[Rfam]
RNA sequence: AAUGAAGGAGCUUCGACUAACGGCGCUCACUUCCUGUGAGCAACGUCGAAGCCACCGCAUCCUACGGA
Numbered sequence: 001a002a003u004g005a006a007g008g009a010g011c012u013u014c015g016a017c018u019a020a021c022g023g024c025g026c027u028c029a030c031u032u033c034c035u036g037u038g039a040g041c042a043a044c045g046u047c048g049a050a051g052c053c054a055c056c057g058c059a060u061c062c063u064a065c066g067g068a
Base pairs, nucleotide, nucleotide: 011051012050013049014048015047016046017045026040027039028038029037030036055067056066057065

Rfam assigns this 68-nucleotide RNA from Sporolactobacillus inulinus to the family "Bacillaceae-1 RNA". The source organism's lineage runs through Bacteria, Bacilli, Caryophanales, Sporolactobacillus and Sporolactobacillus inulinus. By type it is a small RNA. It scores 52 bits against the family's covariance model.